[Rfam]
RNA sequence: CCGCUGAACAUUGGGGAGUAGUCGUCCGUCGGCCCGUCCGGCGGAAUCUGCAUCAACAUAAUCGGCCCGCAGGCCGUGGUGCAGAUGGUGAUCCACUUGACGAGACCAUUGAUCAAGGGGCGGCCGCAUGGGCCGGAGUCGCCCCUGGAUCAUU
Numbered sequence: 001c002c003g004c005u006g007a008a009c010a011u012u013g014g015g016g017a018g019u020a021g022u023c024g025u026c027c028g029u030c031g032g033c034c035c036g037u038c039c040g041g042c043g044g045a046a047u048c049u050g051c052a053u054c055a056a057c058a059u060a061a062u063c064g065g066c067c068c069g070c071a072g073g074c075c076g077u078g079g080u081g082c083a084g085a086u087g088g089u090g091a092u093c094c095a096c097u098u099g100a101c102g103a104g105a106c107c108a109u110u111g112a113u114c115a116a117g118g119g120g121c122g123g124c125c126g127c128a129u130g131g132g133c134c135g136g137a138g139u140c141g142c143c144c145c146u147g148g149a150u151c152a153u154u
Stems, first nucleotide, its partner, number of pairs: 026044005046086010063076005

Rfam assigns this 154-nucleotide sequence from Rugamonas rubra to the family "Manganese Mn2+ riboswitch aptamer (yybP-ykoY)". A search with the family's covariance model found it, with a score of 76 bits. The family has 29 seed sequences and 1,126 matches in Rfam 15.1. The source organism's lineage runs through Bacteria, Pseudomonadati, Pseudomonadota, Burkholderiales and Rugamonas.